RNA sequence: GCCCUGCUGGCCCAAUGGAUAAGGCGCCACCCUCCUAAGGUAGAGAUUCCGAGUUCGAUUCUCGGGUAGGGUA
Numbered sequence: 001g002c003c004c005u006g007c008u009g010g011c012c013c014a015a016u017g018g019a020u021a022a023g024g025c026g027c028c029a030c031c032c033u034c035c036u037a038a039g040g041u042a043g044a045g046a047u048u049c050c051g052a053g054u055u056c057g058a059u060u061c062u063c064g065g066g067u068a069g070g071g072u073a
Base pairs, nucleotide, nucleotide: 001072002071003070004069005068006067007066010025011024012023027043029041030040031039049065050064051063052062053061
Source information
This 73-nucleotide RNA sequence from Perkinsus olseni belongs to the Rfam family "tRNA". The base pairs follow the family's consensus structure, which is taken from published work. From the family's description: Transfer RNA (tRNA) molecules are approximately 80 nucleotides in length.